[Rfam]
RNA sequence: AGUGAAUCCAUAGCGCCAGAACCGGCAGGACAUUCAGACGAAUCAGGCCGAACCAUCAGCAGUCAGCGCAAAAAAGCGCAUGAGUACAUAUCGAGCAGGAUUCGCAGACAGCCGGUUGACGAGGAAGGGGUUUAUCGAAGUUUUCGGCGGAUGCCCCUCGGCCGCUCACGGCCGCAGCCAAGCCACAAAUUCCGGGAGCAAUCGCGGGGACAAAGGGCUGGUGGUGAGUGU
Numbered sequence: 001a002g003u004g005a006a007u008c009c010a011u012a013g014c015g016c017c018a019g020a021a022c023c024g025g026c027a028g029g030a031c032a033u034u035c036a037g038a039c040g041a042a043u044c045a046g047g048c049c050g051a052a053c054c055a056u057c058a059g060c061a062g063u064c065a066g067c068g069c070a071a072a073a074a075a076g077c078g079c080a081u082g083a084g085u086a087c088a089u090a091u092c093g094a095g096c097a098g099g100a101u102u103c104g105c106a107g108a109c110a111g112c113c114g115g116u117u118g119a120c121g122a123g124g125a126a127g128g129g130g131u132u133u134a135u136c137g138a139a140g141u142u143u144u145c146g147g148c149g150g151a152u153g154c155c156c157c158u159c160g161g162c163c164g165c166u167c168a169c170g171g172c173c174g175c176a177g178c179c180a181a182g183c184c185a186c187a188a189a190u191u192c193c194g195g196g197a198g199c200a201a202u203c204g205c206g207g208g209g210a211c212a213a214a215g216g217g218c219u220g221g222u223g224g225u226g227a228g229u230g231u
Stems, first nucleotide, its partner, number of pairs: 020117007126158005135147004159174006179221001181219003191208004196203002